Rfam assigns this 77-nucleotide RNA sequence from Piliocolobus tephrosceles to the family "mir-1290 microRNA precursor family".
A search with the family's covariance model found it, with a score of 83 bits.

[Rfam]
RNA sequence: GAGCGUCAUGUUGGCACUCAGAAAAGUUUCAGAUUUUGGAGUAUUUCAGAUUUUGGAUUUUUGAAUCAGCGAUGUUC
Numbered sequence: 001g002a003g004c005g006u007c008a009u010g011u012u013g014g015c016a017c018u019c020a021g022a023a024a025a026g027u028u029u030c031a032g033a034u035u036u037u038g039g040a041g042u043a044u045u046u047c048a049g050a051u052u053u054u055g056g057a058u059u060u061u062u063g064a065a066u067c068a069g070c071g072a073u074g075u076u077c
Stems, first nucleotide, its partner, number of pairs: 001077007011069004018064003022061004028057006035050006